[Rfam]
RNA sequence: UCAAAGCUCCAUCUACAAAUGGAUAAGACUUUUGUCUUUAGUGUGUACGGGCUUUUAAAAAGAAAAAAAAAGGGAGCAAUUGUCAAUUUUUUAUUCUAUCAAAAGGGUUGGUGUUGCUCCU
Numbered sequence: 001u002c003a004a005a006g007c008u009c010c011a012u013c014u015a016c017a018a019a020u021g022g023a024u025a026a027g028a029c030u031u032u033u034g035u036c037u038u039u040a041g042u043g044u045g046u047a048c049g050g051g052c053u054u055u056u057a058a059a060a061a062g063a064a065a066a067a068a069a070a071a072g073g074g075a076g077c078a079a080u081u082g083u084c085a086a087u088u089u090u091u092u093a094u095u096c097u098a099u100c101a102a103a104a105g106g107g108u109u110g111g112u113g114u115u116g117c118u119c120c121u
Stems, first nucleotide, its partner, number of pairs: 008023005072121009085108001088105005
The family of this 121-nucleotide RNA sequence from Populus deltoides is "Plastid-psbA-1 3UTR RNA". Clan: Plastid-psbA 3UTR RNA clan. About the family: Plastid psbA-1 is a non-coding RNA (ncRNA) present in plastids. It was identified in inverted repeat sequences in the 3 prime untranslate region (3UTR) of photosystem II quinone-binding protein (psbA). On this family, see Richter et al., Plant Commun 2023: "Retrograde signaling in plants: A critical review focusing on the GUN pathway and beyond".